RNA sequence: GUCUCCAUCUUACGAGGCAGCAUUGGAUUUCAUUACUUUUUCUAAUACUGCCUGGUAAUGAUGAUGAU
Dot-bracket structure: .((..((((((((.((((((.((((((.............)))))).)))))).)))).))))..)).

The record is a 68-nucleotide RNA sequence from Danio rerio, which matches "mir-8/mir-141/mir-200 microRNA precursor family" in Rfam. Lineage of the source: Eukaryota > Vertebrata > Teleostei > Ostariophysi > Danio. For this family Rfam cites "Identification of novel genes coding for small expressed RNAs" (Lagos-Quintana et al., Science, 2001). Pairs were carried over by alignment from the consensus structure, which was predicted with RNAalifold. The family is grouped with related families in Rfam's "mir-8 microRNA precursor clan". It is one of the family's seed sequences.